[Rfam]
RNA sequence: CGAGGUCAAAUGGAGUAGUCGAAAGAUGAAAGACGACCUUCGCAAAAGGAGAGAUACUUCCCUGGGUGCAAAUCCCUAAAACUGCCCUUUGACGACCUUGCACGGACGCUGCUUGCAUGGCGAGGCAUUGCGCUUACCUCGUUUCAUGUGCCAGGUCAAAGUAGUUUAGACGCGCACCAACAAGAUAACUAUGCGGAGGGCGAAUACUUUUAUGACAAGUG
Numbered sequence: 001c002g003a004g005g006u007c008a009a010a011u012g013g014a015g016u017a018g019u020c021g022a023a024a025g026a027u028g029a030a031a032g033a034c035g036a037c038c039u040u041c042g043c044a045a046a047a048g049g050a051g052a053g054a055u056a057c058u059u060c061c062c063u064g065g066g067u068g069c070a071a072a073u074c075c076c077u078a079a080a081a082c083u084g085c086c087c088u089u090u091g092a093c094g095a096c097c098u099u100g101c102a103c104g105g106a107c108g109c110u111g112c113u114u115g116c117a118u119g120g121c122g123a124g125g126c127a128u129u130g131c132g133c134u135u136a137c138c139u140c141g142u143u144u145c146a147u148g149u150g151c152c153a154g155g156u157c158a159a160a161g162u163a164g165u166u167u168a169g170a171c172g173c174g175c176a177c178c179a180a181c182a183a184g185a186u187a188a189c190u191a192u193g194c195g196g197a198g199g200g201c202g203a204a205u206a207c208u209u210u211u212a213u214g215a216c217a218a219g220u221g
Base pairs, nucleotide, nucleotide: 004038005037006036007035019026020025065077066076068074084201085200086199087198088197089196090195091194093193094157095156096155097154098153100151101150102149103148108116109115119143120142121141122140123139124138125137161192162191163190164189165188167187169178
RT-2 RNA: a 221-nucleotide RNA sequence. The base pairs follow the family's consensus structure, which is taken from published work. Rfam's curators put it in the seed alignment.